The record is a 79-nucleotide RNA from Mangrovimonas sp. DI 80, which matches "Flavo-1 RNA" in Rfam.
RNA sequence: UUUUAAUUGCGUUAGUGAUGGCAGCGGCAUCCUUUUGCAAAGACUUUUGCAAAAGAUUUAGCGAACAGCACGCCCUUUU
Numbered sequence: 001u002u003u004u005a006a007u008u009g010c011g012u013u014a015g016u017g018a019u020g021g022c023a024g025c026g027g028c029a030u031c032c033u034u035u036u037g038c039a040a041a042g043a044c045u046u047u048u049g050c051a052a053a054a055g056a057u058u059u060a061g062c063g064a065a066c067a068g069c070a071c072g073c074c075c076u077u078u079u
Base pairs, nucleotide, nucleotide: 015071016070017069019067020066024062025061029057030056031055035052036051037050038049039048040047041046
Notes
The base pairs follow the family's consensus structure, which is taken from published work. The match comes from Rfam's covariance-model search (52 bits). Taxonomically the source falls in Mangrovimonas (Bacteria, Bacteroidota, Flavobacteriia, Flavobacteriaceae). The family's RNA type in Rfam is small RNA.